[Rfam]
RNA sequence: CUACGGGGAUGAUACUUAACUUGAACUCUCUCUUUCUGAUGAUCUCAUGGAUUGUGAGAUUGAGGCCACAUCAGGCUCUGUGUUCAGUGGA
Numbered sequence: 001c002u003a004c005g006g007g008g009a010u011g012a013u014a015c016u017u018a019a020c021u022u023g024a025a026c027u028c029u030c031u032c033u034u035u036c037u038g039a040u041g042a043u044c045u046c047a048u049g050g051a052u053u054g055u056g057a058g059a060u061u062g063a064g065g066c067c068a069c070a071u072c073a074g075g076c077u078c079u080g081u082g083u084u085c086a087g088u089g090g091a
Stems, first nucleotide, its partner, number of pairs: 001090004

Small nucleolar RNA SNORD26: a 91-nucleotide sequence from Neogale vison. Lineage of the source: Eukaryota > Chordata > Tetrapoda > Caniformia > Neogale. The base pairs follow the family's consensus structure, which was predicted with PFOLD. It scores 46 bits against the family's covariance model. Rfam 15.1 lists 451 matches to the family in 401 species. Rfam links the family to the GO terms nucleolus and RNA processing. Rfam classes the family as a C/D-box small nucleolar RNA.